Rfam assigns this 103-nucleotide RNA from Aquabacter spiritensis to the family "Glycine riboswitch aptamer". The source organism's lineage runs through Bacteria, Pseudomonadota, Hyphomicrobiales, Xanthobacteraceae and Aquabacter. Clan: Glycine riboswitch clan. About the family: This family represents the bacterial glycine riboswitch. It scores 36 bits against the family's covariance model.
[Rfam]
RNA sequence: CCUCUGGAAAGCAGAUGCGGGGUCAUAGCCGCGUCUCACCGAAGGAGUAAGCCGCACGGUGCAAGCCGGGCGCGCGAAAUCUCUCAGGUUCCGGUGACAGAGG
Numbered sequence: 001c002c003u004c005u006g007g008a009a010a011g012c013a014g015a016u017g018c019g020g021g022g023u024c025a026u027a028g029c030c031g032c033g034u035c036u037c038a039c040c041g042a043a044g045g046a047g048u049a050a051g052c053c054g055c056a057c058g059g060u061g062c063a064a065g066c067c068g069g070g071c072g073c074g075c076g077a078a079a080u081c082u083c084u085c086a087g088g089u090u091c092c093g094g095u096g097a098c099a100g101a102g103g
Base pairs, nucleotide, nucleotide: 001103002102003101004100005099006098013036014035015034016033017032018031019030020029038089039088040087041085042084045083046082047081051075052074